[Rfam]
RNA sequence: GGGGCUGAUUUUGGAUUCGACAGGAUUCUGGACGCCCGAGGUGCAUGCAGAGGAGCGGUUGGCCUCUUUAAAAAGCCGCAUUUAAAGUAGUCGCAAACGACGAAAACUACGCUCUCGCCGCUUAAUAACCGGCCGUGAGCCCUUCCACUCAAACUUCGUUCAUGGGUAGAGGUUCGGAAGGUCAUCAACAUGAACUAGCGAGGGAAACCCGCCUGGGGUUGAACCGCGAAAUAGAAUCAGGACCGCUAUGAGAAAUCCUGUUUGUCGGAGUUCGAAAUAGUUAAAUAAAAGACAAAAUAAGCAUGUAGUACCAACGGUAGACGCUUUCUGGACGGGGGUUCAAGUCCCCCCAGCUCCACCA
Numbered sequence: 001g002g003g004g005c006u007g008a009u010u011u012u013g014g015a016u017u018c019g020a021c022a023g024g025a026u027u028c029u030g031g032a033c034g035c036c037c038g039a040g041g042u043g044c045a046u047g048c049a050g051a052g053g054a055g056c057g058g059u060u061g062g063c064c065u066c067u068u069u070a071a072a073a074a075g076c077c078g079c080a081u082u083u084a085a086a087g088u089a090g091u092c093g094c095a096a097a098c099g100a101c102g103a104a105a106a107c108u109a110c111g112c113u114c115u116c117g118c119c120g121c122u123u124a125a126u127a128a129c130c131g132g133c134c135g136u137g138a139g140c141c142c143u144u145c146c147a148c149u150c151a152a153a154c155u156u157c158g159u160u161c162a163u164g165g166g167u168a169g170a171g172g173u174u175c176g177g178a179a180g181g182u183c184a185u186c187a188a189c190a191u192g193a194a195c196u197a198g199c200g201a202g203g204g205a206a207a208c209c210c211g212c213c214u215g216g217g218g219u220u221g222a223a224c225c226g227c228g229a230a231a232u233a234g235a236a237u238c239a240g241g242a243c244c245g246c247u248a249u250g251a252g253a254a255a256u257c258c259u260g261u262u263u264g265u266c267g268g269a270g271u272u273c274g275a276a277a278u279a280g281u282u283a284a285a286u287a288a289a290a291g292a293c294a295a296a297a298u299a300a301g302c303a304u305g306u307a308g309u310a311c312c313a314a315c316g317g318u319a320g321a322c323g324c325u326u327u328c329u330g331g332a333c334g335g336g337g338g339u340u341c342a343a344g345u346c347c348c349c350c351c352a353g354c355u356c357c358a359c360c361a
Stems, first nucleotide, its partner, number of pairs: 001357007021330005028323001033320001036317003041312001044305005049067005055079006113138002116135001117133004141181006148171003152167001154165002158195006198227003211243001213241002216238001245281005252273002256269003261296006334350005
This 361-nucleotide sequence from Lacimicrobium alkaliphilum belongs to the Rfam family "transfer-messenger RNA". Pairs were carried over by alignment from the consensus structure, which is taken from published work. Rfam links the family to the GO term RNA catabolic process. A search with the family's covariance model found it, with a score of 218 bits. Bacterial tmRNA, also known as 10Sa RNA or SsrA, is named for its dual tRNA and mRNA-like properties. By type it is a non-coding RNA gene. The literature on the family includes a 1996 paper in RNA by Williams and Bartel, "Phylogenetic analysis of tmRNA secondary structure". The family is grouped with related families in Rfam's "tRNA clan".